[Rfam]
RNA sequence: CGGAAUAAGGAGCCUCCGAGCCAGUGGGCCUAAGGCCAUGCUUAAGGCUAUGGUCGCUGGCCUCCCGCCCCAGGUGGGCGGUGACGGGGUGGGCCGGGAAACGGGCCUGCCUCCCGGAAUGGGAAAGGAGCUUCGCAGACGAGGCA
Numbered sequence: 001c002g003g004a005a006u007a008a009g010g011a012g013c014c015u016c017c018g019a020g021c022c023a024g025u026g027g028g029c030c031u032a033a034g035g036c037c038a039u040g041c042u043u044a045a046g047g048c049u050a051u052g053g054u055c056g057c058u059g060g061c062c063u064c065c066c067g068c069c070c071c072a073g074g075u076g077g078g079c080g081g082u083g084a085c086g087g088g089g090u091g092g093g094c095c096g097g098g099a100a101a102c103g104g105g106c107c108u109g110c111c112u113c114c115c116g117g118a119a120u121g122g123g124a125a126a127g128g129a130g131c132u133u134c135g136c137a138g139a140c141g142a143g144g145c146a
Base pairs, nucleotide, nucleotide: 003140006137011132012131014130015129016128017127020061021060022059023058024057025056026055028054029053030052034049035048036047037046065081066080067079068078069077087112088111089110090109091108092107093106094105095104097102113123114122
RNA: Molybdenum/Tungsten riboswitch aptamer (Moco RNA motif)